RNA sequence: CGGUGUCAAUGAUGUCACUUUACCUACAUUGUUUGAUCCUGCUGAGAAAAACCCAAACCCUGAGACACCU
Number, nucleotide and partner (000 for none) at each position: 001c000002g069003g000004u067005g066006u065007c064008a000009a000010u000011g000012a000013u000014g000015u000016c000017a000018c000019u000020u000021u000022a000023c000024c000025u000026a000027c000028a000029u000030u000031g000032u000033u000034u000035g000036a000037u000038c000039c000040u000041g000042c000043u000044g000045a000046g000047a000048a000049a000050a000051a000052c000053c000054c000055a000056a000057a000058c000059c000060c000061u000062g000063a000064g007065a006066c005067a004068c000069c002070u000
Small nucleolar RNA SNORD34: a 70-nucleotide sequence from Dicaeum eximium. For this family Rfam cites "Purified box C/D snoRNPs are able to reproduce site-specific 2'-O-methylation of target RNA in vitro" (Galardi et al., Mol Cell Biol, 2002). Rfam describes the family as follows. snoRNA U34 is found in intron 5 of the ribosomal protein L13a gene in humans. Its family is annotated with nucleolus and RNA processing in the Gene Ontology. Taxonomically the source falls in Dicaeum (Eukaryota, Opisthokonta, Coelurosauria, Dicaeidae). The family's consensus secondary structure was predicted with PFOLD.